[Rfam]
RNA sequence: GCGCAGGCGUUGCUAAGUGGUUACUUCGCAACUUUUAAUUGUGUUAGAGACCAUUGGCGCUAACCUGCGUUUUU
Numbered sequence: 001g002c003g004c005a006g007g008c009g010u011u012g013c014u015a016a017g018u019g020g021u022u023a024c025u026u027c028g029c030a031a032c033u034u035u036u037a038a039u040u041g042u043g044u045u046a047g048a049g050a051c052c053a054u055u056g057g058c059g060c061u062a063a064c065c066u067g068c069g070u071u072u073u074u
Stems, first nucleotide, its partner, number of pairs: 002069006012058004017054004025049003
Rfam assigns this 74-nucleotide sequence from Stegodyphus mimosarum to the family "Vault RNA". For this family Rfam cites "Evolution of Vault RNAs" (Stadler et al., Mol Biol Evol, 2009). Rfam 15.1 lists 2,873 matches to the family in 431 species. Pairs were carried over by alignment from the consensus structure, which is taken from published work. The source organism's lineage runs through Eukaryota, Eumetazoa, Protostomia, Araneae and Stegodyphus.